[Rfam]
Nucleotides: 119
Stems, first nucleotide, its partner, number of pairs: 032072006038064001040062003084114010
Number, partner (000 for none) and nucleotide at each position: 001000a002000u003000a004000u005000a006000a007000g008000a009000u010000g011000g012000a013000u014000a015000u016000c017000u018000a019000u020000g021000c022000a023000c024000u025000u026000u027000u028000a029000u030000a031000a032072g033071g034070a035069a036068a037067c038064a039000g040062a041061c042060g043000u044000a045000g046000u047000c048000u049000g050000a051000u052000u053000a054000u055000a056000u057000c058000a059000c060042c061041g062040u063000g064038u065000c066000u067037g068036u069035u070034u071033u072032u073000g074000u075000g076000c077000a078000a079000u080000a081000u082000a083000a084114a085113a086112a087111g088110a089109a090108c091107c092106u093105g094000a095000g096000u097000a098000a099000u100000u101000u102000u103000a104000c105093c106092a107091g108090g109089u110088u111087c112086u113085u114084u115000c116000u117000u118000a119000a
Rfam assigns this 119-nucleotide sequence from Bacillus subtilis to the family "Bacillus sRNA ncr1015".
Rfam's curators put it in the seed alignment.
It is annotated as a small RNA.